[Rfam]
RNA sequence: UUUGCAGGACGACCUGCAAACGCUUCUUUCACCGGGGACGGCCCC
Number, nucleotide and partner (000 for none) at each position: 001u020002u019003u018004g017005c016006a015007g014008g013009a000010c000011g000012a000013c008014c007015u006016g005017c004018a003019a002020a001021c000022g000023c000024u000025u000026c000027u000028u000029u000030c000031a000032c000033c000034g045035g044036g043037g042038a000039c000040g000041g000042c037043c036044c035045c034

Shown here is a 45-nucleotide sequence from Salmonella enterica, a member of the family "Guanidine-II riboswitch aptamer (mini-ykkC)". Simpler in structure and has fewer highly conserved nucleotide positions than the ykkC-yxkD leader. Despite this each of its two stem-loop structures directly bind free guanidine. Therefore, mini-ykkC RNA motif represents a distinct class of guanidine-sensing RNAs. Pairs were carried over by alignment from the consensus structure, which is taken from published work. The organism belongs to Salmonella enterica subsp. enterica, within Bacteria. It is one of the family's seed sequences.